[Rfam]
RNA sequence: CCCCUGGGCGUCCGCCCGGGGGGCCCUGACACCGGUACCUGACACGGCCGGUGCAG
Number, nucleotide and partner (000 for none) at each position: 001c022002c021003c020004c019005u018006g017007g016008g015009c014010g000011u000012c000013c000014g009015c008016c007017c006018g005019g004020g003021g002022g001023g000024c000025c000026c056027u055028g054029a000030c053031a052032c051033c050034g049035g048036u047037a000038c000039c000040u000041g000042a000043c000044a000045c000046g000047g036048c035049c034050g033051g032052u031053g030054c028055a027056g026
Rfam assigns this 56-nucleotide RNA from Streptomyces sp. BoleA5 to the family "L17-Actino-Proteobacteria ribosomal protein leader". The organism belongs to Streptomyces, within Bacteria. Rfam classes the family as a cis-regulatory leader. The family's consensus secondary structure is taken from published work. A reference for the family is Eckert and Weinberg (2020), "Discovery of 20 novel ribosomal leader candidates in bacteria and archaea", BMC Microbiol.